[Rfam]
A member of the RNA family "Bacterial large subunit ribosomal RNA" from Oenococcus oeni, 231 nucleotides of a longer RNA. Rfam links the family to the GO terms ribosome and structural constituent of ribosome. Lineage of the source: Bacteria > Bacillati > Lactobacillales > Oenococcus > Oenococcus oeni.
RNA sequence: GAGUUACGAUUGCGUGCAAGGUUAAGGUGCAAAGACUGGAGCCGUAGCGAAAGCGAGUCUUAAUAGGGCGAAUCAGUACGUAGUUGUAGACCCGAAACCGAGUGACCUAUCCAUGGUCAGGUUGAAGGUGGGGUAAUACCUACUGGAGGACCGAACAAGUGGGUGUUAAAAAACCCUUUGAUGAACUGUGGAUAGCGGUGAAAUUCCAAUCGAACUCGGAGAUAGCUGGUU
Numbered sequence: 001g002a003g004u005u006a007c008g009a010u011u012g013c014g015u016g017c018a019a020g021g022u023u024a025a026g027g028u029g030c031a032a033a034g035a036c037u038g039g040a041g042c043c044g045u046a047g048c049g050a051a052a053g054c055g056a057g058u059c060u061u062a063a064u065a066g067g068g069c070g071a072a073u074c075a076g077u078a079c080g081u082a083g084u085u086g087u088a089g090a091c092c093c094g095a096a097a098c099c100g101a102g103u104g105a106c107c108u109a110u111c112c113a114u115g116g117u118c119a120g121g122u123u124g125a126a127g128g129u130g131g132g133g134u135a136a137u138a139c140c141u142a143c144u145g146g147a148g149g150a151c152c153g154a155a156c157a158a159g160u161g162g163g164u165g166u167u168a169a170a171a172a173a174c175c176c177u178u179u180g181a182u183g184a185a186c187u188g189u190g191g192a193u194a195g196c197g198g199u200g201a202a203a204u205u206c207c208a209a210u211c212g213a214a215c216u217c218g219g220a221g222a223u224a225g226c227u228g229g230u231u
Stems, first nucleotide, its partner, number of pairs: 005088013020043004026037003047054002057069004091229002094226001098219006107195011118183001120152004127144006156180003161176004197207002